[Rfam]
RNA: Mammalian CPEB3 ribozyme
Organism: Alligator mississippiensis
RNA sequence: GUUGCAAUUUUGUGGCCAUUGCAGAAAUGCUCAUGGCGUGGCUUGUCAGAUUCCAACAAAUCUGCAAAUUCUGCU
Numbered sequence: 001g002u003u004g005c006a007a008u009u010u011u012g013u014g015g016c017c018a019u020u021g022c023a024g025a026a027a028u029g030c031u032c033a034u035g036g037c038g039u040g041g042c043u044u045g046u047c048a049g050a051u052u053c054c055a056a057c058a059a060a061u062c063u064g065c066a067a068a069u070u071c072u073g074c075u
Stems, first nucleotide, its partner, number of pairs: 014043004021074006027039003047064006